[Rfam]
RNA sequence: AACGAAAGGGCGCGUAAACGCGCCCUUUCAUAGAUAAAUGCGGGGCUAAACCCCGCAUUUUCAAUCAAAGGCAAAA
Numbered sequence: 001a002a003c004g005a006a007a008g009g010g011c012g013c014g015u016a017a018a019c020g021c022g023c024c025c026u027u028u029c030a031u032a033g034a035u036a037a038a039u040g041c042g043g044g045g046c047u048a049a050a051c052c053c054c055g056c057a058u059u060u061u062c063a064a065u066c067a068a069a070g071g072c073a074a075a076a
Base pairs, nucleotide, nucleotide: 006027007026008025009024010023011022012021013020014019033062034061036060037059038058039057040056041055042054043052044051

Shown here is a 76-nucleotide RNA sequence, a member of the family "Termite-leu RNA".
Rfam's curators put it in the seed alignment.
The family's RNA type in Rfam is cis-regulatory element.